RNA sequence: UGGGCCACAGUCACAGCUGGUGUAAAUCAGUGUGAGCUAAUGAAGUCAGUGGAGCUUCUCUGAUUUACACUAGCUGAGGUUAUGGCUCA
Numbered sequence: 001u002g003g004g005c006c007a008c009a010g011u012c013a014c015a016g017c018u019g020g021u022g023u024a025a026a027u028c029a030g031u032g033u034g035a036g037c038u039a040a041u042g043a044a045g046u047c048a049g050u051g052g053a054g055c056u057u058c059u060c061u062g063a064u065u066u067a068c069a070c071u072a073g074c075u076g077a078g079g080u081u082a083u084g085g086c087u088c089a
Stems, first nucleotide, its partner, number of pairs: 001089007009081004014076016041048002
Dot-bracket structure: (((((((.((((.((((((((((((((((...........((....))............)))))))))))))))).)))).)))))))
Rfam assigns this 89-nucleotide RNA from Gallus gallus to the family "mir-1756 microRNA precursor family". The organism belongs to Gallus, within Eukaryota. Its family is annotated with miRNA-mediated post-transcriptional gene silencing and RISC complex in the Gene Ontology.